This 63-nucleotide RNA from Phyllostomus discolor belongs to the Rfam family "U7 small nuclear RNA". The match comes from Rfam's covariance-model search (52 bits). The family has 49 seed sequences and 10,439 matches in Rfam 15.1.
RNA sequence: UGGUGCUUACAGCUCUUUUUGAAUUUGUCUAGUAAGUCUUCCUGUCUUUACCAGAAGACCCGC
Numbered sequence: 001u002g003g004u005g006c007u008u009a010c011a012g013c014u015c016u017u018u019u020u021g022a023a024u025u026u027g028u029c030u031a032g033u034a035a036g037u038c039u040u041c042c043u044g045u046c047u048u049u050a051c052c053a054g055a056a057g058a059c060c061c062g063c
Stems, first nucleotide, its partner, number of pairs: 036059006044051002

NCBI's taxonomy places the organism under Eukaryota, Dipnotetrapodomorpha, Amniota, Yangochiroptera, Phyllostomus.